About this RNA
Shown here is a 52-nucleotide RNA sequence from Paracoccus subflavus, a member of the family "serC leader". The pairing is the family consensus, mapped onto this sequence. Lineage of the source: Bacteria > Pseudomonadota > Rhodobacterales > Paracoccaceae > Paracoccus. A reference for the family is Corbino et al. (2005), "Evidence for a second class of S-adenosylmethionine riboswitches and other regulatory RNA motifs in alpha-proteobacteria", Genome Biol. It is annotated as a cis-regulatory leader. This family is a putative regulatory RNA structure that is found upstream of the serC-serA operon in some alpha-proteobacteria. The final stem of the structure overlaps the ribosome binding site of the serC reading frame.
RNA sequence: CGGCGGGACACCCUUCCCCAACGAAGGGCUUUUAGCUGGAAGGCUGACAUGA
Numbered sequence: 001c002g003g004c005g006g007g008a009c010a011c012c013c014u015u016c017c018c019c020a021a022c023g024a025a026g027g028g029c030u031u032u033u034a035g036c037u038g039g040a041a042g043g044c045u046g047a048c049a050u051g052a
Stems, first nucleotide, its partner, number of pairs: 011028006032047006